[Rfam]
RNA sequence: AAUCCGAAAUGGCAAACCAGGGGAAACUCGGGGACGCAAAGCUAUAGGGGCUACAGCUAUCCAGCCAUGCCAGCCAGCUGCCGAA
Numbered sequence: 001a002a003u004c005c006g007a008a009a010u011g012g013c014a015a016a017c018c019a020g021g022g023g024a025a026a027c028u029c030g031g032g033g034a035c036g037c038a039a040a041g042c043u044a045u046a047g048g049g050g051c052u053a054c055a056g057c058u059a060u061c062c063a064g065c066c067a068u069g070c071c072a073g074c075c076a077g078c079u080g081c082c083g084a085a
Stems, first nucleotide, its partner, number of pairs: 012037002017032002020029003040079004047075002049071003056065003
Annotation:
The family of this 85-nucleotide sequence from Bacillus sp. T33-2 is "c-di-GMP-I riboswitch aptamer". A search with the family's covariance model found it, with a score of 73 bits. Gene Ontology term of the family: cyclic-di-GMP binding.